[Rfam]
RNA sequence: CCUUUCGUAGCUCAAUGGCUAGAGCCCCGCGUUGUGGUCGCGGUGAUUCCGGUUCAACUCCGGGCGGAGGGA
Numbered sequence: 001c002c003u004u005u006c007g008u009a010g011c012u013c014a015a016u017g018g019c020u021a022g023a024g025c026c027c028c029g030c031g032u033u034g035u036g037g038u039c040g041c042g043g044u045g046a047u048u049c050c051g052g053u054u055c056a057a058c059u060c061c062g063g064g065c066g067g068a069g070g071g072a
Base pairs, nucleotide, nucleotide: 001071002070003069004068005067006066007065010025011024012023013022027043028042029041030040031039048064049063050062051061052060

Shown here is a 72-nucleotide RNA sequence from Streptomyces fulvorobeus, a member of the family "tRNA".
The organism belongs to Streptomyces, within Bacteria.
Its family is annotated with triplet codon-amino acid adaptor activity in the Gene Ontology.